RNA: azaaromatic riboswitch aptamer (yjdF RNA)
RNA sequence: AAACGCGGGGAUCAAAACACGGCCCGGUUGGUAGUCCGGGCGCGGCGGUAGCCGUCAGUAACCUGCCUCCUAAGGUUGUCCGUUCCCCGCGGCGAACAC
Numbered sequence: 001a002a003a004c005g006c007g008g009g010g011a012u013c014a015a016a017a018c019a020c021g022g023c024c025c026g027g028u029u030g031g032u033a034g035u036c037c038g039g040g041c042g043c044g045g046c047g048g049u050a051g052c053c054g055u056c057a058g059u060a061a062c063c064u065g066c067c068u069c070c071u072a073a074g075g076u077u078g079u080c081c082g083u084u085c086c087c088c089g090c091g092g093c094g095a096a097c098a099c
Stems, first nucleotide, its partner, number of pairs: 004091008022041006042055005065076004